Rfam assigns this 45-nucleotide RNA from Catharus ustulatus to the family "Histone 3' UTR stem-loop". The mRNAs of metazoan histone genes lack a poly-A tail. 3' end processing occurs at a site between a highly conserved stem-loop (modelled by this family) and a purine rich region around 20 nts downstream (the histone downstream element, or HDE). The stem-loop is bound by a 31 kDa stem-loop binding protein (SLBP - also termed the histone hairpin binding protein, or HBP). Together with U7 snRNA binding of the HDE, SLBP binding nucleate s the formation of the processing complex. The base pairs follow the family's consensus structure, which is taken from published work. Lineage of the source: Eukaryota > Chordata > Dinosauria > Australaves > Catharus.
RNA sequence: CCAAAGGCUCUUGUAAGAGCCACUCACAUUCUCUUAAAUAGGCUG
Numbered sequence: 001c002c003a004a005a006g007g008c009u010c011u012u013g014u015a016a017g018a019g020c021c022a023c024u025c026a027c028a029u030u031c032u033c034u035u036a037a038a039u040a041g042g043c044u045g
Stems, first nucleotide, its partner, number of pairs: 006021006